[Rfam]
RNA sequence: GUGAAAACCAUAUGAAUCACUACACUACUUGAUUCAUAUGGUUCUCAAAA
Numbered sequence: 001g002u003g004a005a006a007a008c009c010a011u012a013u014g015a016a017u018c019a020c021u022a023c024a025c026u027a028c029u030u031g032a033u034u035c036a037u038a039u040g041g042u043u044c045u046c047a048a049a050a
Base pairs, nucleotide, nucleotide: 002047003046004045006043007042008041009040010039011038012037013036014035015034016033017032018031019030
RNA: Plastid-ccsA-ndhD-1 3UTR RNA